[Rfam]
RNA sequence: AAAUCAUAUGGGCAAGGUCAGCGAAAGCUGGCUUGCGCAAAGCUAUGGGUCUAAAGAAUUUUUUUCUAUGACUGCCAGGUUGCAGCA
Dot-bracket structure: ...........((...((((((....))))))....))..((((.((((((....(((.....)))...)))..)))))))......
c-di-GMP-I riboswitch aptamer: an 87-nucleotide RNA sequence from Halonatronomonas betaini. Rfam describes the family as follows. GEMM was predicted in a large-scale screen for bacterial structured RNA regulatory elements. Lineage of the source: Bacteria > Bacillati > Clostridia > Halanaerobiales > Halonatronomonas. The family's consensus secondary structure is taken from published work.